[Rfam]
RNA sequence: GAUCAUUGACAUAAUUGAUAAGGCUAAAACAAAGAGAUAACUAACGUAGAGAGGCUCUAAGCCCUCUACAAGUGACUAACAAUAUAGCUUGCAAGUAUAGACCUAACGUGCUAUACGCUGAACCAGCAAAAGCGGUGAAGCCCUCGCAGGGUGAUGAACGCAGAGGCUGGCAACCUCGCCCUUCGUAAGGGGCUUGCAAGCAC
Numbered sequence: 001g002a003u004c005a006u007u008g009a010c011a012u013a014a015u016u017g018a019u020a021a022g023g024c025u026a027a028a029a030c031a032a033a034g035a036g037a038u039a040a041c042u043a044a045c046g047u048a049g050a051g052a053g054g055c056u057c058u059a060a061g062c063c064c065u066c067u068a069c070a071a072g073u074g075a076c077u078a079a080c081a082a083u084a085u086a087g088c089u090u091g092c093a094a095g096u097a098u099a100g101a102c103c104u105a106a107c108g109u110g111c112u113a114u115a116c117g118c119u120g121a122a123c124c125a126g127c128a129a130a131a132g133c134g135g136u137g138a139a140g141c142c143c144u145c146g147c148a149g150g151g152u153g154a155u156g157a158a159c160g161c162a163g164a165g166g167c168u169g170g171c172a173a174c175c176u177c178g179c180c181c182u183u184c185g186u187a188a189g190g191g192g193c194u195u196g197c198a199a200g201c202a203c
Stems, first nucleotide, its partner, number of pairs: 048067004053062001087201008095116006123170005178193004
RNA: DUF2693 RNA